[Rfam]
RNA sequence: CUGUCACGCGCGGGAGAGAUCGGACUUGCAACCUAGUCCGGCGCCGAAGGAGCAACCGCCCCGGAAACUCUCAGGCAGAAGGACCGCGUGGGCAAA
Numbered sequence: 001c002u003g004u005c006a007c008g009c010g011c012g013g014g015a016g017a018g019a020u021c022g023g024a025c026u027u028g029c030a031a032c033c034u035a036g037u038c039c040g041g042c043g044c045c046g047a048a049g050g051a052g053c054a055a056c057c058g059c060c061c062c063g064g065a066a067a068c069u070c071u072c073a074g075g076c077a078g079a080a081g082g083a084c085c086g087c088g089u090g091g092g093c094a095a096a
Stems, first nucleotide, its partner, number of pairs: 007090007020041007043076003046072002050070003056064002
RNA: Glycine riboswitch aptamer